[Rfam]
RNA: Fluoride riboswitch aptamer (crcB RNA motif)
Organism: Acetohalobium arabaticum
RNA sequence: ACAUAUUAUGGUGAUGGAGCUCGCCGUUAACUAUUGCAUUCUUGCAAUUGAUGGCUCCUAUUUGGGU
Numbered sequence: 001a002c003a004u005a006u007u008a009u010g011g012u013g014a015u016g017g018a019g020c021u022c023g024c025c026g027u028u029a030a031c032u033a034u035u036g037c038a039u040u041c042u043u044g045c046a047a048u049u050g051a052u053g054g055c056u057c058c059u060a061u062u063u064g065g066g067u
Base pairs, nucleotide, nucleotide: 010025011024012023013022016058017057018056019055020054021053033048034047035046036045